[Rfam]
RNA sequence: GAUAGCCGUAGAUUACCAGCGGGUCGAGGGUCGGCUGGACGGUUCGCACCGUUUGAGUCGUCGCAUCGUAGAGGCCGCCCCAGAUCGUAGCCUUAGCCACCAGCAGCAGCGCUCCUGCGCCUAAAAACAGCAGGUGAUGACCUAGAAUCAGUCCUAGCUUGGCCGGGUCAUCCCA
Numbered sequence: 001g002a003u004a005g006c007c008g009u010a011g012a013u014u015a016c017c018a019g020c021g022g023g024u025c026g027a028g029g030g031u032c033g034g035c036u037g038g039a040c041g042g043u044u045c046g047c048a049c050c051g052u053u054u055g056a057g058u059c060g061u062c063g064c065a066u067c068g069u070a071g072a073g074g075c076c077g078c079c080c081c082a083g084a085u086c087g088u089a090g091c092c093u094u095a096g097c098c099a100c101c102a103g104c105a106g107c108a109g110c111g112c113u114c115c116u117g118c119g120c121c122u123a124a125a126a127a128c129a130g131c132a133g134g135u136g137a138u139g140a141c142c143u144a145g146a147a148u149c150a151g152u153c154c155u156a157g158c159u160u161g162g163c164c165g166g167g168u169c170a171u172c173c174c175a
Stems, first nucleotide, its partner, number of pairs: 133172006141166002
Record summary
Rfam assigns this 175-nucleotide sequence from Vasconcelosia minhoensis to the family "Antisense RNA which regulates isiA expression". For this family Rfam cites "An internal antisense RNA regulates expression of the photosynthesis gene isiA" (Duhring et al., Proc Natl Acad Sci U S A, 2006). It scores 87 bits against the family's covariance model. Rfam 15.1 lists 3,397 matches to the family in 659 species. Pairs were carried over by alignment from the consensus structure, which was predicted with PFOLD.